[Rfam]
Nucleotides: 045
Stems, first nucleotide, its partner, number of pairs: 006021006
Number, partner (000 for none) and nucleotide at each position: 001000a002000c003000a004000a005000c006021g007020g008019u009018c010017c011016u012000u013000u014000u015000a016011a017010g018009g019008a020007c021006c022000a023000c024000c025000c026000a027000c028000a029000u030000c031000u032000a033000c034000a035000u036000a037000g038000g039000a040000g041000c042000u043000u044000c045000u